[Rfam]
RNA sequence: GAUUUUCUUCGGGGUCGGGUGCAAUUCCCAACCGGCGGUGAUGAGGGCAACCUCUUAGUCCGUGACCCGUGUUUAAUAAGUGAACACGGUGGAUUUGGUGAAAUUCCAAAGCCGACAGUAAAAGUCUGGAUGGGAGAAGAAAAGC
Numbered sequence: 001g002a003u004u005u006u007c008u009u010c011g012g013g014g015u016c017g018g019g020u021g022c023a024a025u026u027c028c029c030a031a032c033c034g035g036c037g038g039u040g041a042u043g044a045g046g047g048c049a050a051c052c053u054c055u056u057a058g059u060c061c062g063u064g065a066c067c068c069g070u071g072u073u074u075a076a077u078a079a080g081u082g083a084a085c086a087c088g089g090u091g092g093a094u095u096u097g098g099u100g101a102a103a104u105u106c107c108a109a110a111g112c113c114g115a116c117a118g119u120a121a122a123a124g125u126c127u128g129g130a131u132g133g134g135a136g137a138a139g140a141a142a143a144g145c
Stems, first nucleotide, its partner, number of pairs: 003143008017029003031125002033114002035063004058112002067089002094110005116128003

Shown here is a 145-nucleotide RNA sequence from Ornithinibacillus hominis, a member of the family "FMN riboswitch aptamer (RFN element)". A search with the family's covariance model found it, with a score of 116 bits. The source organism's lineage runs through Bacteria, Bacilli, Caryophanales, Bacillaceae and Ornithinibacillus.